RNA sequence: GAACCAGUCUCGCUGAGUCUCCGCAUGGAGAACGGGGGAACCGGCGCAAACAUGGAUCGGCUGAUGCCGGCCAGGUUUGCAAAUGAUUCCUUUUCAGGGUCUUAGGGGUGAAUUCGAGGUCGUUGCGCCAUGAGCGAACGAACUGAGAAAGGGCGGCUCUCUUUCGUCCGAACCCGACAGCUAACCUCGUAAGCGUACCAAGAGAGGUAAC
Numbered sequence: 001g002a003a004c005c006a007g008u009c010u011c012g013c014u015g016a017g018u019c020u021c022c023g024c025a026u027g028g029a030g031a032a033c034g035g036g037g038g039a040a041c042c043g044g045c046g047c048a049a050a051c052a053u054g055g056a057u058c059g060g061c062u063g064a065u066g067c068c069g070g071c072c073a074g075g076u077u078u079g080c081a082a083a084u085g086a087u088u089c090c091u092u093u094u095c096a097g098g099g100u101c102u103u104a105g106g107g108g109u110g111a112a113u114u115c116g117a118g119g120u121c122g123u124u125g126c127g128c129c130a131u132g133a134g135c136g137a138a139c140g141a142a143c144u145g146a147g148a149a150a151g152g153g154c155g156g157c158u159c160u161c162u163u164u165c166g167u168c169c170g171a172a173c174c175c176g177a178c179a180g181c182u183a184a185c186c187u188c189g190u191a192a193g194c195g196u197a198c199c200a201a202g203a204g205a206g207g208u209a210a211c
Stems, first nucleotide, its partner, number of pairs: 011195004018031003032190006042105001106175003114148002151169004
RNA: c-di-AMP riboswitch aptamer (ydaO/yuaA leader)